About this RNA:
A member of the RNA family "tRNA", 66 nucleotides long. Rfam links the family to the GO term triplet codon-amino acid adaptor activity.

[Rfam]
RNA sequence: UCUAAUAUGGCAGAUUAAUGCAUUAGAUUUAAGCUCUAAAAAUAAAGUUUUGACCUUUUAUUAGAA
Numbered sequence: 001u002c003u004a005a006u007a008u009g010g011c012a013g014a015u016u017a018a019u020g021c022a023u024u025a026g027a028u029u030u031a032a033g034c035u036c037u038a039a040a041a042a043u044a045a046a047g048u049u050u051u052g053a054c055c056u057u058u059u060a061u062u063a064g065a066a
Base pairs, nucleotide, nucleotide: 001065002064003063004062005061006060007059010021011020012019023039024038025037026036027035044058045057046056047055
It is annotated as a transfer RNA.